[Rfam]
RNA sequence: AAUAUGCCGAAGGCCUUUUCACUAUUGCUUCGUCAGGGCAUAUCCCUGACGAAGCAAUAGCGAAAAGGCCUUCGGCAUAUU
Numbered sequence: 001a002a003u004a005u006g007c008c009g010a011a012g013g014c015c016u017u018u019u020c021a022c023u024a025u026u027g028c029u030u031c032g033u034c035a036g037g038g039c040a041u042a043u044c045c046c047u048g049a050c051g052a053a054g055c056a057a058u059a060g061c062g063a064a065a066a067g068g069c070c071u072u073c074g075g076c077a078u079a080u081u
Stems, first nucleotide, its partner, number of pairs: 001081003005077006012070008022060001024058008

Shown here is an 81-nucleotide RNA from Penaeus vannamei, a member of the family "mir-130 microRNA precursor family". A search with the family's covariance model found it, with a score of 41 bits. Gene Ontology terms of the family: miRNA-mediated post-transcriptional gene silencing and RISC complex. For this family Rfam cites "Identification of tissue-specific microRNAs from mouse" (Lagos-Quintana et al., Curr Biol, 2002).